[Rfam]
RNA: Plasmid transferred anti-sense RNA
Organism: Marinobacter nauticus
RNA sequence: CUGUCAUGUGUCACCUCUCUGUCAGGUGGUAUGUGGAAAUGCGGGCCGGUGCACCAUCACCGGCCCGUGUGCUU
Numbered sequence: 001c002u003g004u005c006a007u008g009u010g011u012c013a014c015c016u017c018u019c020u021g022u023c024a025g026g027u028g029g030u031a032u033g034u035g036g037a038a039a040u041g042c043g044g045g046c047c048g049g050u051g052c053a054c055c056a057u058c059a060c061c062g063g064c065c066c067g068u069g070u071g072c073u074u
Stems, first nucleotide, its partner, number of pairs: 004036003009031001012028005039070012